Description:
A member of the RNA family "MIR5284 microRNA precursor family" from Medicago truncatula, 111 nucleotides long. NCBI's taxonomy places the organism under Eukaryota, Streptophytina, Papilionoideae, Trifolieae, Medicago. The match comes from Rfam's covariance-model search (105 bits). The base pairs follow the family's consensus structure, which was predicted with RNAalifold.
RNA sequence: CUGUAAUUUCAGAUUCCUCCAAUUUUGGUCCCUCCUUUUACGUGCCAUGUAUGCAGAUUCUACUUACGUGGUGGAAUGAGGGACCAAAAAUGAAAAAAUCUGAAAUUACAG
Numbered sequence: 001c002u003g004u005a006a007u008u009u010c011a012g013a014u015u016c017c018u019c020c021a022a023u024u025u026u027g028g029u030c031c032c033u034c035c036u037u038u039u040a041c042g043u044g045c046c047a048u049g050u051a052u053g054c055a056g057a058u059u060c061u062a063c064u065u066a067c068g069u070g071g072u073g074g075a076a077u078g079a080g081g082g083a084c085c086a087a088a089a090a091u092g093a094a095a096a097a098a099u100c101u102g103a104a105a106u107u108a109c110a111g
Base pairs, nucleotide, nucleotide: 004108005107006106007105008104009103010102011101012100013099014098015097018094020092021091023089024088025087026086027085028084029083030082031081032080033079034078036076037075038074039073044072045071046070047069048068049067050066053063055061056060